Guanidine-I riboswitch aptamer: a 119-nucleotide RNA sequence from Paenibacillus antri.
The source organism's lineage runs through Bacteria, Bacillota, Caryophanales, Paenibacillaceae and Paenibacillus.
The match comes from Rfam's covariance-model search (78 bits).
RNA sequence: UUGUAGGCUUUCUAGGGUUCCUCGAGACGCGCGGCGCGCGAUUCGGUACGGUCCGAGAGAAAGCCGCGCGGGGGCAUGGGAUUGCCUCGCGUACACGGAGGGAUAAAAGCCCGGGAGAU
Numbered sequence: 001u002u003g004u005a006g007g008c009u010u011u012c013u014a015g016g017g018u019u020c021c022u023c024g025a026g027a028c029g030c031g032c033g034g035c036g037c038g039c040g041a042u043u044c045g046g047u048a049c050g051g052u053c054c055g056a057g058a059g060a061a062a063g064c065c066g067c068g069c070g071g072g073g074g075c076a077u078g079g080g081a082u083u084g085c086c087u088c089g090c091g092u093a094c095a096c097g098g099a100g101g102g103a104u105a106a107a108a109g110c111c112c113g114g115g116a117g118a119u
Stems, first nucleotide, its partner, number of pairs: 007064006015054002020051002022048001023045004028040005066092008094114001096117001100112003